[Rfam]
This 335-nucleotide part of an RNA from Aquimarina spongiae belongs to the Rfam family "Bacterial large subunit ribosomal RNA". Clan: LSU clan. The organism belongs to Aquimarina, within Bacteria. It scores 2752 bits against the family's covariance model. The base pairs follow the family's consensus structure, which is taken from published work.

Nucleotides: 335
Stems, first nucleotide, its partner, number of pairs: 006024006025333004033313004039293002044068006053061002075289004080111002085106003089102001091100003115132005135285005140279003144275001150274002155264004163257001166253005172193006194226001199220001204212002229245001231243004299308002315327003
Number, partner (000 for none) and nucleotide at each position: 001000g002000a003000c004000a005000a006024g007023g008022c009021a010020g011019g012000c013000g014000a015000g016000a017000a018000a019011c020010c021009u022008g023007c024006c025333c026332g027331c028330c029000g030000a031000a032000a033313g034312a035311c036310u037000a038000a039293g040292g041000u042000u043000u044068c045067c046066u047065c048064a049063g050000c051000u052000a053061u054060g055000c056000u057000a058000a059000u060054c061053a062000g063049c064048u065047g066046a067045g068044g069000g070000u071000u072000a073000g074000u075289c076288g077287g078286g079000a080111c081110c082000u083000a084000a085106c086105g087104c088000g089102a090000a091100c092099c093098c094000g095000a096000a097000a098093g099092g100091g101000g102089u103000a104087g105086u106085g107000g108000a109000u110081g111080g112000a113000c114000a115132a116131c117130a118129g119128g120000u121000u122000a123000a124000u125000a126000u127000u128119c129118c130117u131116g132115u133000a134000c135285c136284u137283g138282c139281c140279g141278g142277a143000g144275c145000u146000a147000a148000a149000a150274g151273u152000g153000a154000c155264g156263g157262a158261g159000g160000c161000g162000a163257a164000u165000a166253g167252a168251u169250g170249g171000u172193g173192c174191g175190u176189a177188c178000u179000g180000a181000c182000g183000g184000a185000a186000u187000a188177g189176u190175a191174c192173g193172u194226u195000g196000a197000a198000g199220a200000g201000a202000g203000u204212g205211g206000u207000a208000a209000c210000a211205c212204c213000u214000c215000g216000a217000u218000a219000g220199u221000a222000c223000a224000c225000a226194g227000a228000g229245g230000c231243u232242a233241c234240g235000g236000c237000c238000a239000a240234u241233g242232u243231g244000a245229u246000a247000a248000u249170c250169c251168a252167u253166u254000g255000a256000a257163u258000c259000g260000a261158c262157u263156u264155c265000c266000a267000a268000g269000a270000a271000a272000a273151g274150c275144g276000a277142u278141c279140c280000a281139g282138g283137c284136a285135g286078c287077c288076c289075g290000u291000a292040c293039c294000g295000u296000a297000a298000a299308c300307c301000g302000a303000c304000a305000c306000a307300g308299g309000u310036a311035g312034u313033u314000g315327g316326g317325a318000u319000g320000a321000g322000a323000a324000u325317u326316c327315u328000a329000a330028g331027g332026c333025g334000c335000u